[Rfam]
RNA sequence: AUCAAGGCGCGAGCAUCCAGAGUGAAGGCACGCUUGCUUACCGCAGAGGAAGCUUGCGACCUGACGCCCCCCCACUCUGCCAGAUCAAAAUUUGGCUAUGGGGCAAAGGAUGUUCGCAGCCAU
Numbered sequence: 001a002u003c004a005a006g007g008c009g010c011g012a013g014c015a016u017c018c019a020g021a022g023u024g025a026a027g028g029c030a031c032g033c034u035u036g037c038u039u040a041c042c043g044c045a046g047a048g049g050a051a052g053c054u055u056g057c058g059a060c061c062u063g064a065c066g067c068c069c070c071c072c073c074a075c076u077c078u079g080c081c082a083g084a085u086c087a088a089a090a091u092u093u094g095g096c097u098a099u100g101g102g103g104c105a106a107a108g109g110a111u112g113u114u115c116g117c118a119g120c121c122a123u
Base pairs, nucleotide, nucleotide: 006120009117010116012114013113014112015111016110017109018108022065023064025062028057029056032053035050037048038047039046068103069102070101071100074097076095077094079091

A member of the RNA family "Hepatitis C virus J7880 RNA", 123 nucleotides long. The base pairs follow the family's consensus structure, which was predicted with RNAfold. It is annotated as a cis-regulatory element. A reference for the family is Mauger et al. (2015), "Functionally conserved architecture of hepatitis C virus RNA genomes", Proc Natl Acad Sci U S A. Rfam's curators put it in the seed alignment.